[Rfam]
Guanidine-I riboswitch aptamer: a 140-nucleotide RNA sequence from Paraburkholderia tropica. The organism belongs to Paraburkholderia, within Bacteria. The literature on the family includes a 2021 paper in RNA by Trachman RJ 3rd and Ferre-D'Amare, "An uncommon [K(+)(Mg(2+))2] metal ion triad imparts stability and selectivity to the Guanidine-I riboswitch". From the family's description: This family represents a conserved RNA structure found upstream of the ykkC and yxkD genes in Bacillus subtilis and related genes in other bacteria.
Nucleotides: 140
Stems, first nucleotide, its partner, number of pairs: 007071003011067002015061002020058002022055001023052010073113008115135001117138001121133003
Number, partner (000 for none) and nucleotide at each position: 001000u002000c003000u004000u005000a006000g007071g008070a009069u010000c011067g012066c013000u014000a015061g016060g017000g018000u019000u020058c021057c022055g023052g024051u025050c026049g027048g028047c029046g030045c031044g032043c033000a034000g035000u036000u037000u038000g039000u040000g041000g042000a043032g044031u045030g046029u047028g048027c049026c050025g051024a052023u053000g054000c055022c056000u057021g058020g059000u060016c061015c062000g063000a064000g065000a066012g067011c068000a069009a070008u071007c072000c073113g074112g075111u076110c077109u078108c079107g080106u081000c082000u083000c084000c085000c086000a087000c088000c089000u090000u091000g092000c093000a094000c095000g096000c097000a098000a099000g100000g101000c102000g103000g104000c105000g106080a107079u108078g109077a110076g111075g112074c113073u114000c115135c116000a117138c118000g119000g120000a121133g122132g123131g124000a125000u126000a127000a128000a129000a130000g131123c132122c133121c134000g135115g136000g137000a138117g139000g140000u